The record is a 62-nucleotide RNA from Sphingomonas sp. ID1715, which matches "Fluoride riboswitch aptamer (crcB RNA motif)" in Rfam. Lineage of the source: Bacteria > Pseudomonadati > Alphaproteobacteria > Sphingomonadaceae > Sphingomonas.
RNA sequence: GGUCGCGAUGGGGAUGGAGUCCCCCGAGAACCGCCGAAAAGGCUGAUGGCUCCUACCGAUCG
Numbered sequence: 001g002g003u004c005g006c007g008a009u010g011g012g013g014a015u016g017g018a019g020u021c022c023c024c025c026g027a028g029a030a031c032c033g034c035c036g037a038a039a040a041g042g043c044u045g046a047u048g049g050c051u052c053c054u055a056c057c058g059a060u061c062g
Base pairs, nucleotide, nucleotide: 010025011024012023013022016053017052018051019050020049021048033043034042035041